[Rfam]
RNA sequence: GGCUUUGAUUAGUUUUGCUGUAUUGCAUUCAGCGUCUGGUCAGAAUUCAGCUGUGCAAAUCCAUGCAAAACUGAUUAUAGCU
Numbered sequence: 001g002g003c004u005u006u007g008a009u010u011a012g013u014u015u016u017g018c019u020g021u022a023u024u025g026c027a028u029u030c031a032g033c034g035u036c037u038g039g040u041c042a043g044a045a046u047u048c049a050g051c052u053g054u055g056c057a058a059a060u061c062c063a064u065g066c067a068a069a070a071c072u073g074a075u076u077a078u079a080g081c082u
Stems, first nucleotide, its partner, number of pairs: 003080002006077013020062001023058006031052003
RNA: mir-19 microRNA precursor family